[Rfam]
RNA: mir-135 microRNA precursor family
Organism: Polypterus senegalus
RNA sequence: UUUCUAGCUUGUCUUAUGGCUUUUUAUUCCUACGUGAUGACUACAUAGGUUCAUGUAGGGAUGGAAGCUGUUAAACAGGCAGUGAA
Number, nucleotide and partner (000 for none) at each position: 001u000002u085003u084004c000005u082006a000007g080008c079009u078010u077011g076012u075013c000014u073015u000016a071017u070018g069019g068020c067021u066022u065023u064024u000025u000026a062027u061028u060029c059030c058031u057032a056033c055034g054035u053036g052037a051038u000039g000040a000041c000042u000043a000044c000045a000046u000047a000048g000049g000050u000051u037052c036053a035054u034055g033056u032057a031058g030059g029060g028061a027062u026063g000064g023065a022066a021067g020068c019069u018070g017071u016072u000073a014074a000075a012076c011077a010078g009079g008080c007081a000082g005083u000084g003085a002086a000